The record is a 96-nucleotide sequence from Streptomyces sp. PT12, which matches "Glycine riboswitch aptamer" in Rfam. NCBI's taxonomy places the organism under Bacteria, Actinomycetota, Actinomycetes, Streptomycetaceae, Streptomyces.
RNA sequence: CGACCACGCGCGGGAGAGUCCCCGGUCCAUCCACCGGGGCGCCGAAGGAGCAAGACCUCCCUUGAAUCUCUCAGGCCCCCUUACCGCGCGCGGGAG
Numbered sequence: 001c002g003a004c005c006a007c008g009c010g011c012g013g014g015a016g017a018g019u020c021c022c023c024g025g026u027c028c029a030u031c032c033a034c035c036g037g038g039g040c041g042c043c044g045a046a047g048g049a050g051c052a053a054g055a056c057c058u059c060c061c062u063u064g065a066a067u068c069u070c071u072c073a074g075g076c077c078c079c080c081u082u083a084c085c086g087c088g089c090g091c092g093g094g095a096g
Stems, first nucleotide, its partner, number of pairs: 007090007020039006041076003044072002048070003054063002